RNA: Ribosomal S15 leader
Organism: Motilimonas pumila
Nucleotides: 116
Stems, first nucleotide, its partner, number of pairs: 007026006048069004053064001
Number, partner (000 for none) and nucleotide at each position: 001000u002000u003000u004000u005000g006000u007026a008025g009024c010023u011022g012021a013000a014000u015000u016000a017000g018000u019000g020000a021012u022011u023010g024009g025008c026007u027000a028000c029000a030000a031000a032000u033000c034000a035000u036000u037000c038000a039000c040000c041000c042000a043000a044000a045000a046000u047000a048069u049068u050067g051066g052000a053064g054000u055000u056000a057000g058000u059000u060000a061000u062000g063000u064053c065000a066051c067050u068049a069048a070000g071000u072000g073000c074000a075000g076000a077000a078000g079000c080000u081000a082000a083000a084000g085000c086000a087000g088000c089000a090000a091000u092000c093000g094000u095000u096000g097000c098000a099000g100000a101000a102000u103000a104000c105000g106000c107000a108000g109000u110000u111000a112000a113000a114000g115000a116000a